[Rfam]
RNA: Gag/pol translational readthrough site
Organism: Cricetulus griseus
RNA sequence: UAGGGAAAUCAGGGCCAGGAGCCUCCCCCUGAGCCCCGGAUAACUCUUAAGAUGGGGGGGGG
Numbered sequence: 001u002a003g004g005g006a007a008a009u010c011a012g013g014g015c016c017a018g019g020a021g022c023c024u025c026c027c028c029c030u031g032a033g034c035c036c037c038g039g040a041u042a043a044c045u046c047u048u049a050a051g052a053u054g055g056g057g058g059g060g061g062g
Base pairs, nucleotide, nucleotide: 008041009040010039012036013035014034015033016031017030018029019028022060023059024058025057026056027055